[Rfam]
RNA sequence: AAAAAAAAAACCCUGCAAUUUAAUAGUGCAGGGUCCCUCUAUUACUUGGUGACCAAGUAAAGAAGGCAAAGGGAGAGGAGAAACCGGAGGAAGAACUUAUGGGGAAACGUAAGUCUUCUCCGCGG
Dot-bracket structure: ..........(((((((.(.....).)))))))(((.(....((((((.....)))))).........).)))...........((((.((((.(((((..........)))))))))))))...
RNA: ylbH leader
Organism: Sutcliffiella cohnii